[Rfam]
RNA sequence: ACGCCUUAAACUUAUGAGUAAGGAAAACGAUUCGGGGUGACGCCGGAAUCCUCACUGCUAAUGUAAGACAACGGGUAAAGGACGCCCCCGAGGUGACCCGCCUACUUUGCAGGAUGCCUGGGAGCCACGAUCUGCCUG
Numbered sequence: 001a002c003g004c005c006u007u008a009a010a011c012u013u014a015u016g017a018g019u020a021a022g023g024a025a026a027a028c029g030a031u032u033c034g035g036g037g038u039g040a041c042g043c044c045g046g047a048a049u050c051c052u053c054a055c056u057g058c059u060a061a062u063g064u065a066a067g068a069c070a071a072c073g074g075g076u077a078a079a080g081g082a083c084g085c086c087c088c089c090g091a092g093g094u095g096a097c098c099c100g101c102c103u104a105c106u107u108u109g110c111a112g113g114a115u116g117c118c119u120g121g122g123a124g125c126c127a128c129g130a131u132c133u134g135c136c137u138g
Base pairs, nucleotide, nucleotide: 004023005022006021007020008019029050030049031048032047033046035044036043051067052066054064055063072138073137074136075135076134079133080132081131083129084128088122089121091119092118093117094116095115097113098112100110101109